[Rfam]
RNA sequence: GUUGUUAGCGUAAGGCUUUAUAGCGAAAUCGGAAUCGCUAAAGUAACAACUUGUCCCAUAGAAGCCGUGAGGCCGUUCAUGUGUGGCGAAAGCCUGCAGGACAAAAAGGUAAACAAAUCCGGCGAAAAACUAUCAAAGACGGCCCUUUGGUAGUUUUUU
Numbered sequence: 001g002u003u004g005u006u007a008g009c010g011u012a013a014g015g016c017u018u019u020a021u022a023g024c025g026a027a028a029u030c031g032g033a034a035u036c037g038c039u040a041a042a043g044u045a046a047c048a049a050c051u052u053g054u055c056c057c058a059u060a061g062a063a064g065c066c067g068u069g070a071g072g073c074c075g076u077u078c079a080u081g082u083g084u085g086g087c088g089a090a091a092g093c094c095u096g097c098a099g100g101a102c103a104a105a106a107a108g109g110u111a112a113a114c115a116a117a118u119c120c121g122g123c124g125a126a127a128a129a130c131u132a133u134c135a136a137a138g139a140c141g142g143c144c145c146u147u148u149g150g151u152a153g154u155u156u157u158u159u
Base pairs, nucleotide, nucleotide: 001050002049003048004047005046006045007044022039023038024037025036026035029122030121031120032119033118051104052103053102054101055100056099064084065083066081067080068079069078070077071144072143073142074141075140076139085094086093087092126157127156128155129154130153131152132151133150134149135148136147137146138145

The family of this 159-nucleotide sequence is "FuFi-1 RNA". The base pairs follow the family's consensus structure, which is taken from published work. The family's RNA type in Rfam is small RNA. Rfam's curators put it in the seed alignment.